[Rfam]
RNA sequence: CCUAAUUGCUUUUGUAAGUCGCUCUGGAUAAGAGUGUCUGCUAAAUGACUAAAA
Numbered sequence: 001c002c003u004a005a006u007u008g009c010u011u012u013u014g015u016a017a018g019u020c021g022c023u024c025u026g027g028a029u030a031a032g033a034g035u036g037u038c039u040g041c042u043a044a045a046u047g048a049c050u051a052a053a054a
Base pairs, nucleotide, nucleotide: 013043014041015040016039020036021035022034023033024032025031
Overview: This 54-nucleotide RNA from Coregonus sp. 'balchen' belongs to the Rfam family "UnaL2 LINE 3' element". By type it is a cis-regulatory element. NCBI's taxonomy places the organism under Eukaryota, Gnathostomata, Teleostomi, Coregoninae, Coregonus. Its family is annotated with transposition, RNA-mediated in the Gene Ontology. The match comes from Rfam's covariance-model search (61 bits).